[Rfam]
RNA sequence: GGCACCCUGCCGUGUGCGUGCUCGCUCCGUUUUAAAUGACCUGGACAGUCAUUUAAAAGGGAGCCCGGGUCUCCGCCGGUGGCGCACAGGCCCCCUCCGCAAGGGGACAGGGGAAGUGCAAAGCCGGCGGGAGGGCACCCACCUGCUGGGGAGGCAGGUUCAUUGAACGGCGACACGGCUCGGUGGGGUCCUU
Numbered sequence: 001g002g003c004a005c006c007c008u009g010c011c012g013u014g015u016g017c018g019u020g021c022u023c024g025c026u027c028c029g030u031u032u033u034a035a036a037u038g039a040c041c042u043g044g045a046c047a048g049u050c051a052u053u054u055a056a057a058a059g060g061g062a063g064c065c066c067g068g069g070u071c072u073c074c075g076c077c078g079g080u081g082g083c084g085c086a087c088a089g090g091c092c093c094c095c096u097c098c099g100c101a102a103g104g105g106g107a108c109a110g111g112g113g114a115a116g117u118g119c120a121a122a123g124c125c126g127g128c129g130g131g132a133g134g135g136c137a138c139c140c141a142c143c144u145g146c147u148g149g150g151g152a153g154g155c156a157g158g159u160u161c162a163u164u165g166a167a168c169g170g171c172g173a174c175a176c177g178g179c180u181c182g183g184u185g186g187g188g189u190c191c192u193u
Base pairs, nucleotide, nucleotide: 002191004189005188006187007186008185009184010183011182012181014179015178017177018176019175032166033165034164035163037162038161039160041158042157059140060139061138063136064135065134066133070130074129075128076127077126078125079124080123086117087116091113092112093111094110